[Rfam]
RNA sequence: AGCCUAUGAUGAGAAAUAAGUCAUGCACCACUCUGAUAUAUUGUGUGCUGAGAAAGACCAUAACCAUAUAUACUGAGGCU
Numbered sequence: 001a002g003c004c005u006a007u008g009a010u011g012a013g014a015a016a017u018a019a020g021u022c023a024u025g026c027a028c029c030a031c032u033c034u035g036a037u038a039u040a041u042u043g044u045g046u047g048c049u050g051a052g053a054a055a056g057a058c059c060a061u062a063a064c065c066a067u068a069u070a071u072a073c074u075g076a077g078g079c080u
Stems, first nucleotide, its partner, number of pairs: 001080004
RNA: Small nucleolar RNA Z221/R21b
Organism: Taxus chinensis